Notes
Rfam assigns this 59-nucleotide RNA sequence from Shewanella aestuarii to the family "Pseudomonas sRNA P26". A search with the family's covariance model found it, with a score of 39 bits. NCBI's taxonomy places the organism under Bacteria, Pseudomonadota, Gammaproteobacteria, Alteromonadales, Shewanella.
RNA sequence: UAACUUACCUGUCACCUAAGCAAUUAGGUGAAGGCUGGCGGUUUUUUAACCGUCGGCCU
Numbered sequence: 001u002a003a004c005u006u007a008c009c010u011g012u013c014a015c016c017u018a019a020g021c022a023a024u025u026a027g028g029u030g031a032a033g034g035c036u037g038g039c040g041g042u043u044u045u046u047u048a049a050c051c052g053u054c055g056g057c058c059u
Stems, first nucleotide, its partner, number of pairs: 006030005015020001033058010
Dot-bracket structure: .....(((((....(....).....)))))..((((((((((......)))))))))).